[Rfam]
RNA sequence: ACAAACCUCUGCGGGAGCUCGCACCAAGCGCGGGCUGAGAGGGCGACGCGAGGGUCGCCGACCGCCUGAACCUGACCGGGUAAUGCCGGCGUAGGGAGCGGGUCACCAUGACCA
Numbered sequence: 001a002c003a004a005a006c007c008u009c010u011g012c013g014g015g016a017g018c019u020c021g022c023a024c025c026a027a028g029c030g031c032g033g034g035c036u037g038a039g040a041g042g043g044c045g046a047c048g049c050g051a052g053g054g055u056c057g058c059c060g061a062c063c064g065c066c067u068g069a070a071c072c073u074g075a076c077c078g079g080g081u082a083a084u085g086c087c088g089g090c091g092u093a094g095g096g097a098g099c100g101g102g103u104c105a106c107c108a109u110g111a112c113c114a
Stems, first nucleotide, its partner, number of pairs: 006102003010098001011065004017035005042059005071095004076089004

The family of this 114-nucleotide RNA sequence from Kribbella antiqua is "TPP riboswitch aptamer (THI element)". For this family Rfam cites "Comparative genomics of thiamin biosynthesis in procaryotes. New genes and regulatory mechanisms" (Rodionov et al., J Biol Chem, 2002). It scores 64 bits against the family's covariance model. The base pairs follow the family's consensus structure, which is taken from published work.